Overview
The record is a 300-nucleotide sequence from Penicillium antarcticum, which matches "A. fumigatus sRNA Afu_309" in Rfam. The family has 10 seed sequences and 663 matches in Rfam 15.1. The literature on the family includes a 2008 paper in Nucleic Acids Res by Jochl et al., "Small ncRNA transcriptome analysis from Aspergillus fumigatus suggests a novel mechanism for regulation of protein synthesis". A search with the family's covariance model found it, with a score of 242 bits. Pairs were carried over by alignment from the consensus structure, which was predicted with WAR. The source organism's lineage runs through Eukaryota, Ascomycota, Eurotiomycetes, Eurotiomycetidae and Penicillium.

RNA sequence: ACCAAAACACGGAUCUGUGUCCAGCUUUCCUGUCCAUGAACUCCUUCGGGGGUCUGUGUGAUGGUUGAGAGCUGGGCAGUUCAACGAUAUUGGAGCCAUCAUUUUUCGCGUGGAUGGCACUUACGGUUUCCGGUUGACAGAUCUCAGAUUAAAUGUCUGCGCCUUGUGAUGCGGGUCUUGAGCUCCCACUGGUGAGCUCGGCUUGAUAGCUUGGUUGCGGACGGCGUCAUAUUCCUAAUCUCUUUGCCGAUUGGCCGUUGGCCGCUGAGGCUAGGGAAUAACCAUGACCAGCCAACAUCU
Numbered sequence: 001a002c003c004a005a006a007a008c009a010c011g012g013a014u015c016u017g018u019g020u021c022c023a024g025c026u027u028u029c030c031u032g033u034c035c036a037u038g039a040a041c042u043c044c045u046u047c048g049g050g051g052g053u054c055u056g057u058g059u060g061a062u063g064g065u066u067g068a069g070a071g072c073u074g075g076g077c078a079g080u081u082c083a084a085c086g087a088u089a090u091u092g093g094a095g096c097c098a099u100c101a102u103u104u105u106u107c108g109c110g111u112g113g114a115u116g117g118c119a120c121u122u123a124c125g126g127u128u129u130c131c132g133g134u135u136g137a138c139a140g141a142u143c144u145c146a147g148a149u150u151a152a153a154u155g156u157c158u159g160c161g162c163c164u165u166g167u168g169a170u171g172c173g174g175g176u177c178u179u180g181a182g183c184u185c186c187c188a189c190u191g192g193u194g195a196g197c198u199c200g201g202c203u204u205g206a207u208a209g210c211u212u213g214g215u216u217g218c219g220g221a222c223g224g225c226g227u228c229a230u231a232u233u234c235c236u237a238a239u240c241u242c243u244u245u246g247c248c249g250a251u252u253g254g255c256c257g258u259u260g261g262c263c264g265c266u267g268a269g270g271c272u273a274g275g276g277a278a279u280a281a282c283c284a285u286g287a288c289c290a291g292c293c294a295a296c297a298u299c300u
Stems, first nucleotide, its partner, number of pairs: 011144008019077006026070004030064005035058002038054002041052004085136004092121002095118003155218002161215003166210001174203004180199006186192002223293003226288005239277005246271003253263004